RNA sequence: ACCAGGGGCCCUAGCCAGGGCCUCCGGAUCGAGCACGCGACCCACCCGUCGCGUCGAUCCGUGUCGUUGUAGCCCAUAAGGCGAAAUGACGAGGUUGCGACUGGCAAGAAGUUGUCCUGAGGGACGGGGAAGCAAAACGUAUCAGCAAGAUUGACGGAUUCAGCCAUCCGCUAUCGCCCAACGGCAGCCACGAGCCGGCAAGCGAUUUUGGAUGAAAACCGCUGCAGUCAUCUGCUCGUUC
Numbered sequence: 001a002c003c004a005g006g007g008g009c010c011c012u013a014g015c016c017a018g019g020g021c022c023u024c025c026g027g028a029u030c031g032a033g034c035a036c037g038c039g040a041c042c043c044a045c046c047c048g049u050c051g052c053g054u055c056g057a058u059c060c061g062u063g064u065c066g067u068u069g070u071a072g073c074c075c076a077u078a079a080g081g082c083g084a085a086a087u088g089a090c091g092a093g094g095u096u097g098c099g100a101c102u103g104g105c106a107a108g109a110a111g112u113u114g115u116c117c118u119g120a121g122g123g124a125c126g127g128g129g130a131a132g133c134a135a136a137a138c139g140u141a142u143c144a145g146c147a148a149g150a151u152u153g154a155c156g157g158a159u160u161c162a163g164c165c166a167u168c169c170g171c172u173a174u175c176g177c178c179c180a181a182c183g184g185c186a187g188c189c190a191c192g193a194g195c196c197g198g199c200a201a202g203c204g205a206u207u208u209u210g211g212a213u214g215a216a217a218a219c220c221g222c223u224g225c226a227g228u229c230a231u232c233u234g235c236u237c238g239u240u241c
Base pairs, nucleotide, nucleotide: 005024006023007022008021009020010019011018012017028058029057030056031055036053037052038051040049041048060156061155063151064150065149067147072082073081074080091133117129118128165170175204176203177202182197183196184195185194212231213230214229
RNA: sRNA regulator of biofilms A
Organism: Pseudomonas panipatensis